SAH (S-adenosyl-L-homocysteine) riboswitch aptamer: a 94-nucleotide RNA from a Hyphomonadaceae bacterium. Lineage of the source: Bacteria > Pseudomonadota > Alphaproteobacteria > Hyphomonadales > Hyphomonadaceae. Its family is annotated with regulation of gene expression and S-adenosylhomocysteine metabolic process in the Gene Ontology. The base pairs follow the family's consensus structure, which is taken from published work.
RNA sequence: CCCGCCAAGGAGCGUUGCGACGGCCUAGUUCUUUGCGAACAUUGGCCGCCAGGCUUGGCAGGCUUCCAGUUUUGGAAAACGACGCUCGCGAACU
Numbered sequence: 001c002c003c004g005c006c007a008a009g010g011a012g013c014g015u016u017g018c019g020a021c022g023g024c025c026u027a028g029u030u031c032u033u034u035g036c037g038a039a040c041a042u043u044g045g046c047c048g049c050c051a052g053g054c055u056u057g058g059c060a061g062g063c064u065u066c067c068a069g070u071u072u073u074g075g076a077a078a079a080c081g082a083c084g085c086u087c088g089c090g091a092a093c094u
Base pairs, nucleotide, nucleotide: 002061004059005058006057007056008055021048022047023046024045025044